[Rfam]
RNA sequence: GGAAGUUAAGACAUUGUUUCUUAACUUUUAAUUAAAAAGCUAAGAACCGGUUUUUAAAAUCCUUAUUUAAGAACCGGUUCUUAGUUUUUUUAGUUAAAUGUUAAGAAACAGUUUCUUAAUUUUC
Numbered sequence: 001g002g003a004a005g006u007u008a009a010g011a012c013a014u015u016g017u018u019u020c021u022u023a024a025c026u027u028u029u030a031a032u033u034a035a036a037a038a039g040c041u042a043a044g045a046a047c048c049g050g051u052u053u054u055u056a057a058a059a060u061c062c063u064u065a066u067u068u069a070a071g072a073a074c075c076g077g078u079u080c081u082u083a084g085u086u087u088u089u090u091u092a093g094u095u096a097a098a099u100g101u102u103a104a105g106a107a108a109c110a111g112u113u114u115c116u117u118a119a120u121u122u123u124c
Base pairs, nucleotide, nucleotide: 001124002123003122004121005120006119007118008117009116010115011114013112014111015110016109017108018107019106020105021104022103023102024101025100027098028097029096030095031094032093033092034091035090036089037088038087039086040084041083042082043081044080045079046078
RNA: MIR9563 microRNA precursor family
Organism: Brassica oleracea